[Rfam]
RNA sequence: GAUAAUUAAAUAUUUAUUACCCAUAUAAUCUCGAUAAUAAGGUUCGAGAGUUUCUACUAGAAGACCGUAAAUUUUCAGGCUAUGGGUAAGUCCAGAUUUUUA
Numbered sequence: 001g002a003u004a005a006u007u008a009a010a011u012a013u014u015u016a017u018u019a020c021c022c023a024u025a026u027a028a029u030c031u032c033g034a035u036a037a038u039a040a041g042g043u044u045c046g047a048g049a050g051u052u053u054c055u056a057c058u059a060g061a062a063g064a065c066c067g068u069a070a071a072u073u074u075u076c077a078g079g080c081u082a083u084g085g086g087u088a089a090g091u092c093c094a095g096a097u098u099u100u101u102a
Base pairs, nucleotide, nucleotide: 018088019087020086021085022084023083024082025081029049030048031047032046033045034044058078060076061075062074063073064072